[Rfam]
RNA sequence: AAAAUAUUUUGGCAAAACUACAGUGAUGUAGUGACGCAAAGCCAUGGGUCUAAUCGCUUAUCUUAGUCGAUCAGAUCGCCAGGUUGCCCAU
Numbered sequence: 001a002a003a004a005u006a007u008u009u010u011g012g013c014a015a016a017a018c019u020a021c022a023g024u025g026a027u028g029u030a031g032u033g034a035c036g037c038a039a040a041g042c043c044a045u046g047g048g049u050c051u052a053a054u055c056g057c058u059u060a061u062c063u064u065a066g067u068c069g070a071u072c073a074g075a076u077c078g079c080c081a082g083g084u085u086g087c088c089c090a091u
Base pairs, nucleotide, nucleotide: 012037013036017032018031019030020029021028022027040085041084042083043082045081046080047079048076049075050074055069056068
The family of this 91-nucleotide RNA from Paenibacillus sp. yr247 is "c-di-GMP-I riboswitch aptamer". The match comes from Rfam's covariance-model search (63 bits).